This 63-nucleotide RNA from Aramus guarauna belongs to the Rfam family "mir-737 microRNA precursor family".
The base pairs follow the family's consensus structure, which was predicted with RNAalifold.
It scores 74 bits against the family's covariance model.
The source organism's lineage runs through Eukaryota, Sarcopterygii, Dipnotetrapodomorpha, Theropoda and Aramus.
Rfam links the family to the GO terms miRNA-mediated post-transcriptional gene silencing and RISC complex.

[Rfam]
RNA sequence: UUGGUUUUUUAGGUUUUGAUUUUUAUUACAUCUUCAUAAGAAAAUCAAAACCUAAAGAAAAUG
Dot-bracket structure: ....((((((((((((((((((((...............))))))))))))))))))))....